Notes
This 94-nucleotide RNA from Etheostoma spectabile belongs to the Rfam family "Vault RNA". It scores 36 bits against the family's covariance model. The family's consensus secondary structure is taken from published work. About the family: This family of RNAs are found as part of the enigmatic vault ribonucleoprotein complex. The complex consists of a major vault protein (MVP), two minor vault proteins (VPARP and TEP1), and several small untranslated RNA molecules. It has been suggested that the vault complex is involved in drug resistance. Rfam classes the family as a non-coding RNA gene.
RNA sequence: GCGGUUUAGCUCAGUGGUUACUUCAAUCAACUGACGAUACCUAGCUCCACCGACCUCCGGGUCAGGAUUUCGAACCUCGGGCGCUUCCGUUUUC
Numbered sequence: 001g002c003g004g005u006u007u008a009g010c011u012c013a014g015u016g017g018u019u020a021c022u023u024c025a026a027u028c029a030a031c032u033g034a035c036g037a038u039a040c041c042u043a044g045c046u047c048c049a050c051c052g053a054c055c056u057c058c059g060g061g062u063c064a065g066g067a068u069u070u071c072g073a074a075c076c077u078c079g080g081g082c083g084c085u086u087c088c089g090u091u092u093u094c
Base pairs, nucleotide, nucleotide: 001090002089003088009082010081011080012079014078016076017075022074023073024072026070